The record is a 109-nucleotide sequence from Clupea harengus, which matches "Vault RNA" in Rfam. By type it is a non-coding RNA gene. The match comes from Rfam's covariance-model search (66 bits).
RNA sequence: GCGCUGGUUUAGCUCAGGGGUUACUUCAAUGCAGAAUUCUCUCUUUCAGAGAUCCCCGCAAACCUCCCCCGAAAGGGGGAUCGAACCCCGGGCGCUGUCCAGCGUUUUA
Number, nucleotide and partner (000 for none) at each position: 001g000002c104003g103004c102005u101006g100007g099008u000009u000010u000011a000012g093013c092014u091015c090016a000017g089018g088019g087020g086021u000022u000023a000024c000025u085026u084027c083028a000029a081030u000031g000032c000033a000034g000035a000036a000037u000038u000039c000040u000041c000042u000043c000044u000045u000046u000047c000048a000049g000050a000051g000052a000053u000054c000055c000056c000057c000058g000059c000060a000061a000062a000063c000064c000065u000066c000067c000068c000069c000070c000071g000072a000073a000074a000075g000076g000077g000078g000079g000080a000081u029082c000083g027084a026085a025086c020087c019088c018089c017090g015091g014092g013093c012094g000095c000096u000097g000098u000099c007100c006101a005102g004103c003104g002105u000106u000107u000108u000109a000